Rfam assigns this 63-nucleotide RNA from Desulfurella amilsii to the family "Fluoride riboswitch aptamer (crcB RNA motif)".
The family has 289 seed sequences and 2,293 matches in Rfam 15.1.
A search with the family's covariance model found it, with a score of 56 bits.
NCBI's taxonomy places the organism under Bacteria, Campylobacterota, Desulfurellia, Desulfurellaceae, Desulfurella.
RNA sequence: GUAAAGAAAGGCGAUGGAGUUCGCCUUAAAAUGCCCACCUUGGCUGAUGACUCCUGCAUAAAA
Numbered sequence: 001g002u003a004a005a006g007a008a009a010g011g012c013g014a015u016g017g018a019g020u021u022c023g024c025c026u027u028a029a030a031a032u033g034c035c036c037a038c039c040u041u042g043g044c045u046g047a048u049g050a051c052u053c054c055u056g057c058a059u060a061a062a063a
Stems, first nucleotide, its partner, number of pairs: 010025004016054006033044003